Shown here is a 75-nucleotide RNA sequence from Streptomyces sp. 150FB, a member of the family "ASpks TB sRNA". Rfam classes the family as an antisense RNA. The match comes from Rfam's covariance-model search (68 bits). Lineage of the source: Bacteria > Actinomycetes > Kitasatosporales > Streptomycetaceae > Streptomyces.
[Rfam]
RNA sequence: CUUGAGGGUGCCGAGCCACAACGGCCGCCGCGCGUCCCGCCCUUGGCCGUACGUCGCGAGCAGCGCCCGCGCCUC
Number, nucleotide and partner (000 for none) at each position: 001c000002u000003u000004g000005a000006g000007g000008g000009u000010g000011c000012c000013g000014a000015g025016c024017c023018a000019c000020a000021a000022c000023g017024g016025c015026c000027g000028c000029c000030g000031c071032g070033c069034g000035u000036c000037c000038c065039g064040c000041c000042c000043u060044u059045g000046g000047c056048c000049g054050u000051a000052c000053g000054u049055c000056g047057c000058g000059a044060g043061c000062a000063g000064c039065g038066c000067c000068c000069g033070c032071g031072c000073c000074u000075c000